This 390-nucleotide RNA sequence from Alkalihalobacillus trypoxylicola belongs to the Rfam family "Bacterial RNase P class B".
Ribonuclease P (RNase P) is a ubiquitous endoribonuclease, found in archaea, bacteria and eukarya as well as chloroplasts and mitochondria. Its best characterised activity is the generation of mature 5'-ends of tRNAs by cleaving the 5'-leader elements of precursor-tRNAs. Cellular RNase Ps are ribonucleoproteins. RNA from bacterial RNase Ps retains its catalytic activity in the absence of the protein subunit, i.e. it is a ribozyme.
Taxonomically the source falls in Alkalihalobacillus (Bacteria, Bacillati, Bacillota, Caryophanales).
The family's RNA type in Rfam is ribozyme.
RNA sequence: GUAUUUAGGUAAUCGCUGCACAUUUGUGUAGAGGAAAGUCCAUGCUCGCACAGACUGCGAUGUCUGUAGUGUUCGUGCCUAGCGAAGUCAUAAGCUAGGGUAGCUUGGGUUCAUAGCCUGUGCUAACGGCAAGAUAAGCACCUAAGUCAUCCGAUAUGGUGUGAAGUCUUUGAAAGUGCCACAGUGACGUAGUCUGAUUGGAAACAAUUAGAGUGGAACGCGGUAAACCCCUCGAGCGAGAAACCCAAAACAUGGUAGGGGCAUCUUCUCUUUCGGAAAUGAACGAAUCAGAAGAACAAGAGUUGACUCUCUUGUAGAUAGAUGGUUACCACCGGAGUACGAGGUUCAUCACCGUUUGCAGUACAAAGGAACAGAACAUGGCUUAUCAAA
Numbered sequence: 001g002u003a004u005u006u007a008g009g010u011a012a013u014c015g016c017u018g019c020a021c022a023u024u025u026g027u028g029u030a031g032a033g034g035a036a037a038g039u040c041c042a043u044g045c046u047c048g049c050a051c052a053g054a055c056u057g058c059g060a061u062g063u064c065u066g067u068a069g070u071g072u073u074c075g076u077g078c079c080u081a082g083c084g085a086a087g088u089c090a091u092a093a094g095c096u097a098g099g100g101u102a103g104c105u106u107g108g109g110u111u112c113a114u115a116g117c118c119u120g121u122g123c124u125a126a127c128g129g130c131a132a133g134a135u136a137a138g139c140a141c142c143u144a145a146g147u148c149a150u151c152c153g154a155u156a157u158g159g160u161g162u163g164a165a166g167u168c169u170u171u172g173a174a175a176g177u178g179c180c181a182c183a184g185u186g187a188c189g190u191a192g193u194c195u196g197a198u199u200g201g202a203a204a205c206a207a208u209u210a211g212a213g214u215g216g217a218a219c220g221c222g223g224u225a226a227a228c229c230c231c232u233c234g235a236g237c238g239a240g241a242a243a244c245c246c247a248a249a250a251c252a253u254g255g256u257a258g259g260g261g262c263a264u265c266u267u268c269u270c271u272u273u274c275g276g277a278a279a280u281g282a283a284c285g286a287a288u289c290a291g292a293a294g295a296a297c298a299a300g301a302g303u304u305g306a307c308u309c310u311c312u313u314g315u316a317g318a319u320a321g322a323u324g325g326u327u328a329c330c331a332c333c334g335g336a337g338u339a340c341g342a343g344g345u346u347c348a349u350c351a352c353c354g355u356u357u358g359c360a361g362u363a364c365a366a367a368g369g370a371a372c373a374g375a376a377c378a379u380g381g382c383u384u385a386u387c388a389a390a
Stems, first nucleotide, its partner, number of pairs: 004390003007386001008330007016031006036384003040381005045240005050067006073235003077231001078099006100127001101125004106120006128230002131170004139161004146155003176228002178224003193212008244260003264295006296315006332369002337364004